[Rfam]
RNA sequence: CAAUUGGAAUAACUCCGAGCCUGCUUACCUAACUCUUUGACAAGGUAUGUAGGCCGCAAAAUUCACAUUUGUGAUUUUGCCAGGGUUGCAAGAGAAAUCGACCAGCCUCCCCUAAGCUCGCAGCAGCAAGCUUUACUUUGGAAAGGUGUUACUUAUGUUAGAAG
Numbered sequence: 001c002a003a004u005u006g007g008a009a010u011a012a013c014u015c016c017g018a019g020c021c022u023g024c025u026u027a028c029c030u031a032a033c034u035c036u037u038u039g040a041c042a043a044g045g046u047a048u049g050u051a052g053g054c055c056g057c058a059a060a061a062u063u064c065a066c067a068u069u070u071g072u073g074a075u076u077u078u079g080c081c082a083g084g085g086u087u088g089c090a091a092g093a094g095a096a097a098u099c100g101a102c103c104a105g106c107c108u109c110c111c112c113u114a115a116g117c118u119c120g121c122a123g124c125a126g127c128a129a130g131c132u133u134u135a136c137u138u139u140g141g142a143a144a145g146g147u148g149u150u151a152c153u154u155a156u157g158u159u160a161g162a163a164g
Base pairs, nucleotide, nucleotide: 003158004157011150012149013148015146016145019054020053021052022051023050024049026047027046028045029044034040035039056080057079058078059077060076061075062074063073083108084107085106086105087104088103092099093098109141110140
A member of the RNA family "Molybdenum/Tungsten riboswitch aptamer (Moco RNA motif)" from Paraglaciecola hydrolytica, 164 nucleotides long. For this family Rfam cites "in molybdenum cofactor and tungsten cofactor metabolism" (Regulski et al., Mol Microbiol, 2008). A search with the family's covariance model found it, with a score of 72 bits.